Record summary
This 47-nucleotide RNA from Oryzias sinensis belongs to the Rfam family "Histone 3' UTR stem-loop". From the family's description: The mRNAs of metazoan histone genes lack a poly-A tail. 3' end processing occurs at a site between a highly conserved stem-loop (modelled by this family) and a purine rich region around 20 nts downstream (the histone downstream element, or HDE). The stem-loop is bound by a 31 kDa stem-loop binding protein (SLBP - also termed the histone hairpin binding protein, or HBP). Together with U7 snRNA binding of the HDE, SLBP binding nucleate s the formation of the processing complex. The histone 3' UTR stem-loop is also involved in nucleocytoplasmic transport of the mRNA, and in stability regulation and translation efficiency in the cytoplasm. Taxonomically the source falls in Oryzias (Eukaryota, Metazoa, Euteleosteomorpha, Beloniformes). The match comes from Rfam's covariance-model search (35 bits).
[Rfam]
RNA sequence: CAAAAGGCCCUUUUAAGGGCCACCAACUUUCCUCUAGAGCAGAGAAU
Numbered sequence: 001c002a003a004a005a006g007g008c009c010c011u012u013u014u015a016a017g018g019g020c021c022a023c024c025a026a027c028u029u030u031c032c033u034c035u036a037g038a039g040c041a042g043a044g045a046a047u
Stems, first nucleotide, its partner, number of pairs: 006021006